[Rfam]
Shown here is a 75-nucleotide sequence from Cynara cardunculus, a member of the family "mir-965 microRNA precursor family". A search with the family's covariance model found it, with a score of 46 bits. The family's consensus secondary structure was predicted with RNAalifold. Its family is annotated with miRNA-mediated post-transcriptional gene silencing and RISC complex in the Gene Ontology.
RNA sequence: UAAUAAGUUUGAAAUGUUUUACGCUUUUUGUUCUCAUCACAUACUUCAAAAGCGUAAAACAUUUCAAACUUAUAG
Numbered sequence: 001u002a003a004u005a006a007g008u009u010u011g012a013a014a015u016g017u018u019u020u021a022c023g024c025u026u027u028u029u030g031u032u033c034u035c036a037u038c039a040c041a042u043a044c045u046u047c048a049a050a051a052g053c054g055u056a057a058a059a060c061a062u063u064u065c066a067a068a069c070u071u072a073u074a075g
Base pairs, nucleotide, nucleotide: 003073004072005071006070007069009067010066011065013063014062017059018058019057020056021055024052025051027050028049029048030047
Annotation: Taxonomically the source falls in Cynara cardunculus subsp. cardunculus (Eukaryota, Asterales, Cardueae, Cynara). A reference for the family is Huang et al. (2012), "The regulation of silkworm fibroin L chain production by miRNA-965 and miRNA-1926 in insect cells", Bioorg Khim.